[Rfam]
RNA sequence: AGGACCUUUAACUUAGUCCAGAGAGUCUGAGAAGGUCGCAAUUUAUAAGGAGCGUGUCAUUUUAUAGGACACGUAUACCUCUUUGCGACUUUCUCGCGGAGAGGUUUUUUUAUU
Numbered sequence: 001a002g003g004a005c006c007u008u009u010a011a012c013u014u015a016g017u018c019c020a021g022a023g024a025g026u027c028u029g030a031g032a033a034g035g036u037c038g039c040a041a042u043u044u045a046u047a048a049g050g051a052g053c054g055u056g057u058c059a060u061u062u063u064a065u066a067g068g069a070c071a072c073g074u075a076u077a078c079c080u081c082u083u084u085g086c087g088a089c090u091u092u093c094u095c096g097c098g099g100a101g102a103g104g105u106u107u108u109u110u111u112a113u114u
Base pairs, nucleotide, nucleotide: 003037004036005035006034007033008032009031013030014029015028016027018025038070042066044064045063047061048060050058051057073109075107077105078104079103080102081101082100083099084098085097086096087095088094
This 114-nucleotide RNA from Salirhabdus euzebyi belongs to the Rfam family "PyrR binding site". From the family's description: This family represents the PyrR binding site and terminator structure. This RNA structure is found upstream of a variety of genes involved in pyrimidine biosynthesis and transport. The alignment also includes a portion of the antiterminator structure. Taxonomically the source falls in Salirhabdus (Bacteria, Bacillati, Bacillota, Bacillaceae).